[Rfam]
RNA sequence: GAAAUGGACAGCUAGGGUUCCGGCCUGCUUCUCGCAGGUGCUGGUCCGAGAGCUGUCGACCUCAGGCGAGGUUACACGGCGGGACAAAAGCCCGGGAGAG
Numbered sequence: 001g002a003a004a005u006g007g008a009c010a011g012c013u014a015g016g017g018u019u020c021c022g023g024c025c026u027g028c029u030u031c032u033c034g035c036a037g038g039u040g041c042u043g044g045u046c047c048g049a050g051a052g053c054u055g056u057c058g059a060c061c062u063c064a065g066g067c068g069a070g071g072u073u074a075c076a077c078g079g080c081g082g083g084a085c086a087a088a089a090g091c092c093c094g095g096g097a098g099a100g
Stems, first nucleotide, its partner, number of pairs: 007057006015047002020044002022041001023039006058073006075095001077098001081093003